[Rfam]
RNA: mir-276 microRNA precursor family
Organism: Anopheles darlingi
RNA sequence: CUCCAGACAACCCACUAGCGAGGUAUAGAGUUCCUAUGUUCCUGUCGUACUUCAUAGGAACUUCAUACCGUGCUCUUGGCUUGAUCUGAA
Numbered sequence: 001c002u003c004c005a006g007a008c009a010a011c012c013c014a015c016u017a018g019c020g021a022g023g024u025a026u027a028g029a030g031u032u033c034c035u036a037u038g039u040u041c042c043u044g045u046c047g048u049a050c051u052u053c054a055u056a057g058g059a060a061c062u063u064c065a066u067a068c069c070g071u072g073c074u075c076u077u078g079g080c081u082u083g084a085u086c087u088g089a090a
Base pairs, nucleotide, nucleotide: 012079013078014077017074018073019072020071022069023068024067025066026065028063029062030061031060032059033058034057035056036055037054
Dot-bracket structure: ...........(((..((((.(((((.((((((((((................)))))))))).))))).))))..)))...........